A member of the RNA family "T-box leader" from Solibacillus sp. R5-41, 205 nucleotides long. About the family: Uncharged tRNA acts as the effector for transcription antitermination of genes in the T-box leader family. T-boxes are found upstream of many aminoacyl-tRNA synthetase genes and some amino acid biosynthetic genes usually in Gram-positive bacteria. The anticodon of a specific tRNA base pairs to a specifier sequence within the T-box motif, and the NCCA acceptor tail of the tRNA base pairs to a conserved bulge in the T-box antiterminator hairpin.
RNA sequence: CAUUAUUUAGUGCAAGGUGAAGUUCUUCUGAUUUUGCUUAGAGAGCGCAUGGCUGGUGAAAAUGCGUCAAAAUAAAAAUGUGAAUGGGCCUUAUGAAAGCUACUAGCGUUAGUUAGUGGACGGUUUCCCUGCCGUUAUCAGGAAUGAGUGGAAGUAGUAGUUUUGCUUCAAUCGAGGUGGCAACGCGGUAUUUAUCGCCCUCAAC
Numbered sequence: 001c002a003u004u005a006u007u008u009a010g011u012g013c014a015a016g017g018u019g020a021a022g023u024u025c026u027u028c029u030g031a032u033u034u035u036g037c038u039u040a041g042a043g044a045g046c047g048c049a050u051g052g053c054u055g056g057u058g059a060a061a062a063u064g065c066g067u068c069a070a071a072a073u074a075a076a077a078a079u080g081u082g083a084a085u086g087g088g089c090c091u092u093a094u095g096a097a098a099g100c101u102a103c104u105a106g107c108g109u110u111a112g113u114u115a116g117u118g119g120a121c122g123g124u125u126u127c128c129c130u131g132c133c134g135u136u137a138u139c140a141g142g143a144a145u146g147a148g149u150g151g152a153a154g155u156a157g158u159a160g161u162u163u164u165g166c167u168u169c170a171a172u173c174g175a176g177g178u179g180g181c182a183a184c185g186c187g188g189u190a191u192u193u194a195u196c197g198c199c200c201u202c203a204a205c
Stems, first nucleotide, its partner, number of pairs: 003098002011093002022081002026077002034070003045067006100119005121134003151169007174202004185198005

Background:
Its family is annotated with tRNA binding in the Gene Ontology. NCBI's taxonomy places the organism under Bacteria, Bacillati, Bacilli, Caryophanaceae, Solibacillus.